RNA sequence: UGUUAAAAAUUUCAUUUAUUUCUACUGUAAAAAGCUAACAUAACUAAUAAAUAACCAGACAGUUACACUUGGUAUGCCACAUGCAUCUCAUCUUGACAUACAUGAACUAACUUUUAACCGUAAAAAUGGACAAUUUUUUUAAUA
Numbered sequence: 001u002g003u004u005a006a007a008a009a010u011u012u013c014a015u016u017u018a019u020u021u022c023u024a025c026u027g028u029a030a031a032a033a034g035c036u037a038a039c040a041u042a043a044c045u046a047a048u049a050a051a052u053a054a055c056c057a058g059a060c061a062g063u064u065a066c067a068c069u070u071g072g073u074a075u076g077c078c079a080c081a082u083g084c085a086u087c088u089c090a091u092c093u094u095g096a097c098a099u100a101c102a103u104g105a106a107c108u109a110a111c112u113u114u115u116a117a118c119c120g121u122a123a124a125a126a127u128g129g130a131c132a133a134u135u136u137u138u139u140u141a142a143u144a
Stems, first nucleotide, its partner, number of pairs: 002143008012133001015130002018127004023122003028117001030115004
The family of this 144-nucleotide RNA sequence from Gossypium klotzschianum is "MIR7502 microRNA precursor family". Pairs were carried over by alignment from the consensus structure, which was predicted with RNAalifold.